Small nucleolar RNA SNORD17: a 248-nucleotide RNA sequence from Apaloderma vittatum.
Taxonomically the source falls in Apaloderma (Eukaryota, Sauria, Archosauria, Neoaves).
For this family Rfam cites "RNomics: an experimental approach that identifies 201 candidates for novel, small, non-messenger RNAs in mouse" (Huttenhofer et al., EMBO J, 2001).
The family's consensus secondary structure was predicted with RNAalifold.
From the family's description: The snoRNA HBI-43 belongs to the C/D family of snoRNAs, guiding 2'O-ribose methylation at position U3797 of the 28S rRNA. Pseudouridylation in position U3797 is predicted to be guided by the H/ACA snoRNA ACA48.
By type it is a C/D-box small nucleolar RNA.

[Rfam]
RNA sequence: GUGAGGUGAUGACGAAGUUUAUCCAUUCUCUGAGUGCAGCUGUGCUGCCCUCCUGCAGCACCCCGGUUCCUGUCCUAGGGUCUGGGUGCUGCGCGGCCUCCAGACACCCUCCAGUCUCCCAGUGUCCUACUGGGGCUGCUGUGGUGUGUGGCUGGCUGCCUGCAGGAGGGGAGUGGUGCUGGCAGGGCUGGAGCCCCCCUUCUGGGGGCGCUCUGUCCUCACCGAGAUGAGGGAUGAUGUCUGAUCAC
Numbered sequence: 001g002u003g004a005g006g007u008g009a010u011g012a013c014g015a016a017g018u019u020u021a022u023c024c025a026u027u028c029u030c031u032g033a034g035u036g037c038a039g040c041u042g043u044g045c046u047g048c049c050c051u052c053c054u055g056c057a058g059c060a061c062c063c064c065g066g067u068u069c070c071u072g073u074c075c076u077a078g079g080g081u082c083u084g085g086g087u088g089c090u091g092c093g094c095g096g097c098c099u100c101c102a103g104a105c106a107c108c109c110u111c112c113a114g115u116c117u118c119c120c121a122g123u124g125u126c127c128u129a130c131u132g133g134g135g136c137u138g139c140u141g142u143g144g145u146g147u148g149u150g151g152c153u154g155g156c157u158g159c160c161u162g163c164a165g166g167a168g169g170g171g172a173g174u175g176g177u178g179c180u181g182g183c184a185g186g187g188c189u190g191g192a193g194c195c196c197c198c199c200u201u202c203u204g205g206g207g208g209c210g211c212u213c214u215g216u217c218c219u220c221a222c223c224g225a226g227a228u229g230a231g232g233g234a235u236g237a238u239g240u241c242u243g244a245u246c247a248c
Base pairs, nucleotide, nucleotide: 010247011246012245017240018239020237023233024232026231027230028229030226031225034222035221039183040182041181042180043178044177045176046175047174048173049170050169051167052166053165054164055163056162057161061088063086064085066082068080069079070078071077093159094158095157096156097155098154106145107144112138113137114136115135116134119133120132121131122130123129124128185220186219189215190214191213192212193211194210196208197207